[Rfam]
RNA sequence: AUCCGUAAUAGAGGUGCAAAUGACAUCAUUAGUUUAUUAGAUAGUCCCUGCUAGGAUCUAAUAAAUGAAAGGGGAUUUUGCCGAAAUCGAUUGUAUGAGCAGAUACUUAUCGAUUGAGUCGUGGUUUAAUAAAUCACGGAUUGUCACAGAGAUGUGGAGUGCUAGGACGGAC
Number, nucleotide and partner (000 for none) at each position: 001a000002u000003c000004c000005g000006u167007a000008a000009u164010a163011g162012a000013g000014g000015u000016g081017c080018a079019a078020a077021u000022g000023a000024c073025a000026u000027c000028a000029u000030u000031a000032g066033u065034u064035u063036a062037u061038u060039a059040g058041a057042u056043a000044g000045u000046c000047c000048c000049u000050g000051c000052u000053a000054g000055g000056a042057u041058c040059u039060a038061a037062u036063a035064a034065a033066u032067g000068a000069a000070a000071g000072g000073g024074g000075a000076u000077u020078u019079u018080g017081c016082c000083g000084a000085a115086a114087u113088c112089g111090a110091u109092u000093g106094u105095a104096u103097g000098a000099g000100c000101a000102g000103a096104u095105a094106c093107u000108u000109a091110u090111c089112g088113a087114u086115u085116g142117a141118g000119u139120c138121g137122u136123g135124g134125u133126u132127u000128a000129a000130u000131a000132a126133a125134u124135c123136a122137c121138g120139g119140a000141u117142u116143g000144u157145c156146a155147c154148a153149g000150a000151g000152a000153u148154g147155u146156g145157g144158a000159g000160u000161g000162c011163u010164a009165g000166g000167a006168c000169g000170g000171a000172c000
A member of the RNA family "Lysine riboswitch aptamer" from Oenococcus oeni, 172 nucleotides long. NCBI's taxonomy places the organism under Bacteria, Bacillota, Bacilli, Oenococcus, Oenococcus oeni.